[Rfam]
Source information
Rfam assigns this 88-nucleotide RNA from Arenimonas composti to the family "c-di-GMP-I riboswitch aptamer". The family's consensus secondary structure is taken from published work.
RNA sequence: GCACGACAACGGCAAACCCAUCGAAAGGUGGGGACGCAAAGCUUCCGGCCUACAGGCGCGAGUCGCCCAGGGUAGCGGGGUUGCCGAA
Numbered sequence: 001g002c003a004c005g006a007c008a009a010c011g012g013c014a015a016a017c018c019c020a021u022c023g024a025a026a027g028g029u030g031g032g033g034a035c036g037c038a039a040a041g042c043u044u045c046c047g048g049c050c051u052a053c054a055g056g057c058g059c060g061a062g063u064c065g066c067c068c069a070g071g072g073u074a075g076c077g078g079g080g081u082u083g084c085c086g087a088a
Base pairs, nucleotide, nucleotide: 012037013036017032018031019030020029021028022027040082041081042080043079045078046077047076048073049072050071055067056066057065058064